[Rfam]
RNA sequence: AUGCAAAUGACGAGUUACUCGGAUUCCCCUUCAAGACAUUAUGGGUGAUGCAAACUCGAGUUUCUGAUGCA
Numbered sequence: 001a002u003g004c005a006a007a008u009g010a011c012g013a014g015u016u017a018c019u020c021g022g023a024u025u026c027c028c029c030u031u032c033a034a035g036a037c038a039u040u041a042u043g044g045g046u047g048a049u050g051c052a053a054a055c056u057c058g059a060g061u062u063u064c065u066g067a068u069g070c071a
Base pairs, nucleotide, nucleotide: 002071003070004069005068
Rfam assigns this 71-nucleotide sequence from Vitis vinifera to the family "Small nucleolar RNA snoR60". Rfam 15.1 lists 1,133 matches to the family in 227 species. For this family Rfam cites "Fibrillarin genes encode both a conserved nucleolar protein and a novel small nucleolar RNA involved in ribosomal RNA methylation in Arabidopsis thaliana" (Barneche et al., J Biol Chem, 2000). It is one of the family's seed sequences. Gene Ontology terms of the family: RNA processing and nucleolus. Its Rfam clan is "SNORD101 clan". The source organism's lineage runs through Eukaryota, Streptophyta, Streptophytina, Magnoliopsida and Vitis.